The family of this 237-nucleotide RNA from Oryza glumipatula is "MIR408 microRNA precursor family". The match comes from Rfam's covariance-model search (85 bits). Gene Ontology terms of the family: miRNA-mediated post-transcriptional gene silencing and RISC complex.

RNA sequence: GUUUUGUGAUUGGAGAGGAGACAGGGAUGAGGCAGAGCAUGGGAUGGGGCUAUCAACAGAUGUAAGAUAGUUCCUUUUGGAUCUUUGAGCUGUAAUAAUAGUAGCAUAGCAAUCCUCUUGUGGAUUGUUGUUUGGAUACAAGAGAUGUUGAGUUGUGAGCUCUGAGAGAUGGCUGGUGUUGUUGUUGCUCCCUCCCCUGCACUGCCUCUUCCCUGGCUCCCCUGCACACCUCUCUCU
Numbered sequence: 001g002u003u004u005u006g007u008g009a010u011u012g013g014a015g016a017g018g019a020g021a022c023a024g025g026g027a028u029g030a031g032g033c034a035g036a037g038c039a040u041g042g043g044a045u046g047g048g049g050c051u052a053u054c055a056a057c058a059g060a061u062g063u064a065a066g067a068u069a070g071u072u073c074c075u076u077u078u079g080g081a082u083c084u085u086u087g088a089g090c091u092g093u094a095a096u097a098a099u100a101g102u103a104g105c106a107u108a109g110c111a112a113u114c115c116u117c118u119u120g121u122g123g124a125u126u127g128u129u130g131u132u133u134g135g136a137u138a139c140a141a142g143a144g145a146u147g148u149u150g151a152g153u154u155g156u157g158a159g160c161u162c163u164g165a166g167a168g169a170u171g172g173c174u175g176g177u178g179u180u181g182u183u184g185u186u187g188c189u190c191c192c193u194c195c196c197c198u199g200c201a202c203u204g205c206c207u208c209u210u211c212c213c214u215g216g217c218u219c220c221c222c223u224g225c226a227c228a229c230c231u232c233u234c235u236c237u
Base pairs, nucleotide, nucleotide: 018219019218020217022215023214024213025212026211027210030207031206032205033204034203035202037200038199039198041196043195047190048189049188050187
The literature on the family includes a 2009 paper in BMC Genomics by Mica et al., "High throughput approaches reveal splicing of primary microRNA transcripts and tissue specific expression of mature microRNAs in Vitis vinifera". Rfam 15.1 lists 299 matches to the family in 186 species.